[Rfam]
RNA: Bacterial RNase P class A
RNA sequence: CGAGUGGGCCUGACGGUCGCGCGCCGCAAGGCGUGAGGAAAGUCCGGGCUCCAAAGGGCAAGAUGCCAGCUAACGGCUGGGCGGGGCGACCCGACGGAUUAGUGCCACAGAAAAGAAGACUCCCUCUUCUUGAGGGAAAAGCUGAAACGGUGCGGUAAAAGCGCACCAGCGCGUCGGCAACGGCGUGGCUUGGUAAACCCCAUCUGGAGCAAGCGCAAAUAGGAACGCGAUACGGUGCCCUUCCGUGCGCUCGGGUUGCGUGCUUGAGACGCGUGGUGACACGCGUUCGAGAUAAAUGGCCGUCCCAACGACAGAACCCGGCUUAUCGACCCACUCGCACU
Numbered sequence: 001c002g003a004g005u006g007g008g009c010c011u012g013a014c015g016g017u018c019g020c021g022c023g024c025c026g027c028a029a030g031g032c033g034u035g036a037g038g039a040a041a042g043u044c045c046g047g048g049c050u051c052c053a054a055a056g057g058g059c060a061a062g063a064u065g066c067c068a069g070c071u072a073a074c075g076g077c078u079g080g081g082c083g084g085g086g087c088g089a090c091c092c093g094a095c096g097g098a099u100u101a102g103u104g105c106c107a108c109a110g111a112a113a114a115g116a117a118g119a120c121u122c123c124c125u126c127u128u129c130u131u132g133a134g135g136g137a138a139a140a141g142c143u144g145a146a147a148c149g150g151u152g153c154g155g156u157a158a159a160a161g162c163g164c165a166c167c168a169g170c171g172c173g174u175c176g177g178c179a180a181c182g183g184c185g186u187g188g189c190u191u192g193g194u195a196a197a198c199c200c201c202a203u204c205u206g207g208a209g210c211a212a213g214c215g216c217a218a219a220u221a222g223g224a225a226c227g228c229g230a231u232a233c234g235g236u237g238c239c240c241u242u243c244c245g246u247g248c249g250c251u252c253g254g255g256u257u258g259c260g261u262g263c264u265u266g267a268g269a270c271g272c273g274u275g276g277u278g279a280c281a282c283g284c285g286u287u288c289g290a291g292a293u294a295a296a297u298g299g300c301c302g303u304c305c306c307a308a309c310g311a312c313a314g315a316a317c318c319c320g321g322c323u324u325a326u327c328g329a330c331c332c333a334c335u336c337g338c339a340c341u
Stems, first nucleotide, its partner, number of pairs: 001337008010328001012304007020035006040324003044321005049209004056241003061205005066080005081095001082093004096200002102198002104194003120141002123136003127132001149167006169189001170187007213261004223252002226249003232246004268287008